[Rfam]
Nucleotides: 112
Stems, first nucleotide, its partner, number of pairs: 006100005011061004017033005040055005067092003073086004
Number, partner (000 for none) and nucleotide at each position: 001000u002000a003000a004000u005000u006100u007099c008098c009097c010096g011061a012060g013059g014058g015000g016000a017033g018032c019031u020030c021029c022000a023000u024000a025000u026000u027000c028000c029021g030020g031019a032018g033017c034000u035000g036000a037000g038000a039000g040055g041054a042053a043052g044051g045000u046000g047000g048000a049000a050000a051044c052043c053042u054041u055040c056000g057000a058014c059013c060012c061011u062000u063000a064000g065000a066000a067092c068091c069090u070000g071000a072000a073086c074085c075084g076083g077000g078000u079000a080000a081000u082000a083076c084075c085074g086073g087000c088000g089000g090069a091068g092067g093000g094000a095000c096010u097009g098008g099007g100006g101000a102000a103000g104000a105000g106000a107000a108000a109000a110000a111000a112000a
This 112-nucleotide sequence from Thermosipho sp. 1063 belongs to the Rfam family "TPP riboswitch aptamer (THI element)". The base pairs follow the family's consensus structure, which is taken from published work.